Shown here is a 127-nucleotide sequence from Eubacterium pyruvativorans, a member of the family "SAM riboswitch aptamer (S box leader)". A search with the family's covariance model found it, with a score of 67 bits.
[Rfam]
RNA sequence: ACCUUAUCGAGAGCGGCUGAGGGAAUAGGCCCGUUGAUGCCCGACAACCUGUAUCCACCGGAAGGUGGGUGCAAGGUGCCAAAUCCUACAGGACAUGACAGAGAGCCAUGUGCCUGAAAGAUAAGGA
Numbered sequence: 001a002c003c004u005u006a007u008c009g010a011g012a013g014c015g016g017c018u019g020a021g022g023g024a025a026u027a028g029g030c031c032c033g034u035u036g037a038u039g040c041c042c043g044a045c046a047a048c049c050u051g052u053a054u055c056c057a058c059c060g061g062a063a064g065g066u067g068g069g070u071g072c073a074a075g076g077u078g079c080c081a082a083a084u085c086c087u088a089c090a091g092g093a094c095a096u097g098a099c100a101g102a103g104a105g106c107c108a109u110g111u112g113c114c115u116g117a118a119a120g121a122u123a124a125g126g127a
Base pairs, nucleotide, nucleotide: 002126003125004124005123006122007121008120013042015041016040017039021032022031023030026088027087028086029085043080045078046077048076049075050073051072052071053070054069055068056067057066084119089116090115091114092113